[Rfam]
Notes: Rfam assigns this 58-nucleotide RNA sequence from Bicyclus anynana to the family "Plastid-psbA-3 3UTR RNA". The base pairs follow the family's consensus structure, which was predicted with LocARNA. Plastid psbA-3 is a non-coding RNA (ncRNA) present in plastids. It was identified in inverted repeat sequences in the 3 prime untranslate region (3UTR) of photosystem II quinone-binding protein (psbA). By type it is a cis-regulatory element. For this family Rfam cites "Retrograde signaling in plants: A critical review focusing on the GUN pathway and beyond" (Richter et al., Plant Commun, 2023). NCBI's taxonomy places the organism under Eukaryota, Bilateria, Ecdysozoa, Amphiesmenoptera, Bicyclus.

RNA sequence: GCCAAAGUAAUAAAAAUUGUCUUUGUCUAUAAAGACAAUUUUUAUUACUUUGGCUUUU
Numbered sequence: 001g002c003c004a005a006a007g008u009a010a011u012a013a014a015a016a017u018u019g020u021c022u023u024u025g026u027c028u029a030u031a032a033a034g035a036c037a038a039u040u041u042u043u044a045u046u047a048c049u050u051u052g053g054c055u056u057u058u
Base pairs, nucleotide, nucleotide: 001054002053003052004051005050006049007048008047009046010045011044012043013042014041019036020035021034022033023032024031